RNA: Small nucleolar RNA SNORD90
RNA sequence: AAUUCCCUUUUUUGUGUCUUAUGAUGAAGCUUCAUAGGGCAGAUUCUGAGGUGAGAAUUUCUCUCCACUGAUACUCUCUCUAUGCCAUCUGAAGACACUGCAUGCUGU
Dot-bracket structure: ...........(.((((((.........(...(((.(((..(..((.(.((.(((.....))).)).).)))..)))....)))...)....)))))).)........
Numbered sequence: 001a002a003u004u005c006c007c008u009u010u011u012u013u014g015u016g017u018c019u020u021a022u023g024a025u026g027a028a029g030c031u032u033c034a035u036a037g038g039g040c041a042g043a044u045u046c047u048g049a050g051g052u053g054a055g056a057a058u059u060u061c062u063c064u065c066c067a068c069u070g071a072u073a074c075u076c077u078c079u080c081u082a083u084g085c086c087a088u089c090u091g092a093a094g095a096c097a098c099u100g101c102a103u104g105c106u107g108u
Stems, first nucleotide, its partner, number of pairs: 012100001014098006029088001033084003037077003042072001045071002048068001050066002053063003